Shown here is a 45-nucleotide RNA sequence from Pseudomonas sp. TTU2014-080ASC, a member of the family "Guanidine-II riboswitch aptamer (mini-ykkC)". A search with the family's covariance model found it, with a score of 39 bits. Pairs were carried over by alignment from the consensus structure, which is taken from published work. About the family: Simpler in structure and has fewer highly conserved nucleotide positions than the ykkC-yxkD leader. Despite this each of its two stem-loop structures directly bind free guanidine. Therefore, mini-ykkC RNA motif represents a distinct class of guanidine-sensing RNAs.
RNA sequence: AACUGAGGACGACCUCAGUUCGGCAUUUCACCGGGGACGGCCCUG
Numbered sequence: 001a002a003c004u005g006a007g008g009a010c011g012a013c014c015u016c017a018g019u020u021c022g023g024c025a026u027u028u029c030a031c032c033g034g035g036g037a038c039g040g041c042c043c044u045g
Stems, first nucleotide, its partner, number of pairs: 001020008032045005